[Rfam]
RNA sequence: UAGUCAAUGCAUAUAUUAAUCGUGUAGGUAAGUGAAAAAGAUGGUGGCUAACUCUCUGAAGAAGGGGUGAUGCCUGUGGUUUUAGGCUUUGUUCCGGAAAGGAAAAAGUAUUUGUGUAUUUGAAACAUUAACACUUAUGGUCGCUUUCGCAGUCUUAGUUUUACAAAUUAUAGAUCAAAA
Numbered sequence: 001u002a003g004u005c006a007a008u009g010c011a012u013a014u015a016u017u018a019a020u021c022g023u024g025u026a027g028g029u030a031a032g033u034g035a036a037a038a039a040g041a042u043g044g045u046g047g048c049u050a051a052c053u054c055u056c057u058g059a060a061g062a063a064g065g066g067g068u069g070a071u072g073c074c075u076g077u078g079g080u081u082u083u084a085g086g087c088u089u090u091g092u093u094c095c096g097g098a099a100a101g102g103a104a105a106a107a108g109u110a111u112u113u114g115u116g117u118a119u120u121u122g123a124a125a126c127a128u129u130a131a132c133a134c135u136u137a138u139g140g141u142c143g144c145u146u147u148c149g150c151a152g153u154c155u156u157a158g159u160u161u162u163a164c165a166a167a168u169u170a171u172a173g174a175u176c177a178a179a180a
Base pairs, nucleotide, nucleotide: 044153045152047150048149064095065094066093067092068091069090070089072087073086113131116128117127119125158175159174160173161172